[Rfam]
Shown here is an 85-nucleotide RNA sequence, a member of the family "c-di-GMP-II-GAG riboswitch aptamer". The literature on the family includes a 2017 paper in Proc Natl Acad Sci U S A by Weinberg et al., "Bioinformatic analysis of riboswitch structures uncovers variant classes with altered ligand specificity". Pairs were carried over by alignment from the consensus structure, which is taken from published work. Rfam's curators put it in the seed alignment. Gene Ontology terms of the family: cyclic-di-GMP binding and regulation of gene expression.
RNA sequence: UCCCACGCGGGAGGCUCUGACGCGCGGCUCACGCACUGGCCGCCGGGACCGCGCCGAGCCACUGGCGGGACCGACCCGCGAAGCG
Numbered sequence: 001u002c003c004c005a006c007g008c009g010g011g012a013g014g015c016u017c018u019g020a021c022g023c024g025c026g027g028c029u030c031a032c033g034c035a036c037u038g039g040c041c042g043c044c045g046g047g048a049c050c051g052c053g054c055c056g057a058g059c060c061a062c063u064g065g066c067g068g069g070a071c072c073g074a075c076c077c078g079c080g081a082a083g084c085g
Stems, first nucleotide, its partner, number of pairs: 001085001003083001006080006013060003022054006029047001038072002040068005